[Rfam]
RNA sequence: GCAGCGCUGGGCGUCCGUGCCCAGCGAGGAUCGCAAC
Numbered sequence: 001g002c003a004g005c006g007c008u009g010g011g012c013g014u015c016c017g018u019g020c021c022c023a024g025c026g027a028g029g030a031u032c033g034c035a036a037c
Stems, first nucleotide, its partner, number of pairs: 005026009
RNA: CRISPR RNA direct repeat element
Organism: Nocardia sp. NRRL S-836